[Rfam]
RNA sequence: CUUGGGGCUUGCGCCCCAGGCUAUAUGCGAUCGCUGCUCCGCAGCU
Numbered sequence: 001c002u003u004g005g006g007g008c009u010u011g012c013g014c015c016c017c018a019g020g021c022u023a024u025a026u027g028c029g030a031u032c033g034c035u036g037c038u039c040c041g042c043a044g045c046u
Stems, first nucleotide, its partner, number of pairs: 001020008033045005
Rfam assigns this 46-nucleotide RNA from Aureliella helgolandensis to the family "Acido-Lenti-1 RNA".
Taxonomically the source falls in Aureliella (Bacteria, Planctomycetia, Pirellulales, Pirellulaceae).
Rfam classes the family as a small RNA.
Rfam 15.1 lists 2,607 matches to the family in 171 species.